[Rfam]
RNA sequence: AUGUUAAUGCAUACACGUUAACAUCGGUUUUUGAAAAACCGAUGUUAACGUGUAUGCAUUAACAU
Numbered sequence: 001a002u003g004u005u006a007a008u009g010c011a012u013a014c015a016c017g018u019u020a021a022c023a024u025c026g027g028u029u030u031u032u033g034a035a036a037a038a039c040c041g042a043u044g045u046u047a048a049c050g051u052g053u054a055u056g057c058a059u060u061a062a063c064a065u
Base pairs, nucleotide, nucleotide: 001065002064003063004062005061006060007059008058009057010056011055013053014052015051016050017049018048019047020046021045022044023043024042025041026040027039028038029037030036031035
RNA: MIR4359 microRNA precursor family
Organism: Glycine soja